[Rfam]
RNA sequence: UACACAUGAUGAUUUUUUUAUUGGUCCGUGUUUCUGAUCUCAGUGAUGCUUCAAUACAUCUGAUGUA
Numbered sequence: 001u002a003c004a005c006a007u008g009a010u011g012a013u014u015u016u017u018u019u020a021u022u023g024g025u026c027c028g029u030g031u032u033u034c035u036g037a038u039c040u041c042a043g044u045g046a047u048g049c050u051u052c053a054a055u056a057c058a059u060c061u062g063a064u065g066u067a
Stems, first nucleotide, its partner, number of pairs: 001067004
RNA: Small nucleolar RNA SNORD18